[Rfam]
The family of this 139-nucleotide RNA from Spinacia oleracea is "Small nucleolar RNA snoR111". Rfam 15.1 lists 533 matches to the family in 223 species. The family's RNA type in Rfam is H/ACA-box small nucleolar RNA. For this family Rfam cites "Experimental RNomics: identification of 140 candidates for small non-messenger RNAs in the plant Arabidopsis thaliana" (Marker et al., Curr Biol, 2002).

RNA sequence: UAUAUUGAGGGAAGAUAAAUUCACAAUUAUCUUCAAUCAAUCGAAAGAGAAGGCAAAAACAAAGACGAGCUAUCGUUUCAGUCGUCAUCUUGUACAUUUUUUUUCUCAAUUGACGAUUCGAUUGUUGACUCGCCUACAU
Numbered sequence: 001u002a003u004a005u006u007g008a009g010g011g012a013a014g015a016u017a018a019a020u021u022c023a024c025a026a027u028u029a030u031c032u033u034c035a036a037u038c039a040a041u042c043g044a045a046a047g048a049g050a051a052g053g054c055a056a057a058a059a060c061a062a063a064g065a066c067g068a069g070c071u072a073u074c075g076u077u078u079c080a081g082u083c084g085u086c087a088u089c090u091u092g093u094a095c096a097u098u099u100u101u102u103u104u105c106u107c108a109a110u111u112g113a114c115g116a117u118u119c120g121a122u123u124g125u126u127g128a129c130u131c132g133c134c135u136a137c138a139u
Stems, first nucleotide, its partner, number of pairs: 006039003011034007063135002066132004072122004081117007090108001